[Rfam]
RNA: HDV ribozyme from F. prausnitzii
Organism: Paraglomus occultum
RNA sequence: CCCGCUCGAAGUGCUGCCACCUCAACGCGGUGAGCGGGUGACAACGUCUACGGACGGCUAAGAGUAGCACAA
Numbered sequence: 001c002c003c004g005c006u007c008g009a010a011g012u013g014c015u016g017c018c019a020c021c022u023c024a025a026c027g028c029g030g031u032g033a034g035c036g037g038g039u040g041a042c043a044a045c046g047u048c049u050a051c052g053g054a055c056g057g058c059u060a061a062g063a064g065u066a067g068c069a070c071a072a
Base pairs, nucleotide, nucleotide: 001038002037003036004035005034006033007032019031020030021029045056046055047054048053
Dot-bracket structure: (((((((...........(((.......))))))))))......((((....))))................